[Rfam]
RNA sequence: CAAGCCAGAAGAGGCGCGUCGCCCAGGUAAAGUGUCAGAGGAGCCGUACUCCCAUGACGGCACCGGAGGGGGAGCGACGCCGAGGUACAGCGGCCAGCGGCGGCCAACGUAUCGGCUACAGGGGCUGAAUCCCCUGGGUUGUCACCCUAGGCCACCGCAGGUGGCCUGCAAGGUGGGGCGCUUCUGGGUGU
Numbered sequence: 001c002a003a004g005c006c007a008g009a010a011g012a013g014g015c016g017c018g019u020c021g022c023c024c025a026g027g028u029a030a031a032g033u034g035u036c037a038g039a040g041g042a043g044c045c046g047u048a049c050u051c052c053c054a055u056g057a058c059g060g061c062a063c064c065g066g067a068g069g070g071g072g073a074g075c076g077a078c079g080c081c082g083a084g085g086u087a088c089a090g091c092g093g094c095c096a097g098c099g100g101c102g103g104c105c106a107a108c109g110u111a112u113c114g115g116c117u118a119c120a121g122g123g124g125c126u127g128a129a130u131c132c133c134c135u136g137g138g139u140u141g142u143c144a145c146c147c148u149a150g151g152c153c154a155c156c157g158c159a160g161g162u163g164g165c166c167u168g169c170a171a172g173g174u175g176g177g178g179c180g181c182u183u184c185u186g187g188g189u190g191u
Stems, first nucleotide, its partner, number of pairs: 006186006016080007024072001032063005084113005092105004114140004119136006142176005148170001

This 191-nucleotide sequence from Gibbsiella quercinecans belongs to the Rfam family "Lysine riboswitch aptamer". About the family: Riboswitches are metabolite binding domains within certain messenger RNAs that serve as precision sensors for their corresponding targets. The base pairs follow the family's consensus structure, which is taken from published work. The organism belongs to Gibbsiella, within Bacteria. For this family Rfam cites "Riboswitches Control Fundamental Biochemical Pathways in Bacillus subtilis and Other Bacteria" (Mandal et al., Cell, 2003).